Rfam assigns this 73-nucleotide RNA from Granulicella sp. WH15 to the family "Fluoride riboswitch aptamer (crcB RNA motif)".
RNA sequence: AAAUCGGUUGGCGAUGGGGUUCCGCCGAAACCGCCUGCUUUUUCUGAGCAGAGCUGAUGACUCCUGCGCUUCA
Numbered sequence: 001a002a003a004u005c006g007g008u009u010g011g012c013g014a015u016g017g018g019g020u021u022c023c024g025c026c027g028a029a030a031c032c033g034c035c036u037g038c039u040u041u042u043u044c045u046g047a048g049c050a051g052a053g054c055u056g057a058u059g060a061c062u063c064c065u066g067c068g069c070u071u072c073a
Stems, first nucleotide, its partner, number of pairs: 010026004016064006033054002036051001
A search with the family's covariance model found it, with a score of 49 bits. The organism belongs to Granulicella, within Bacteria.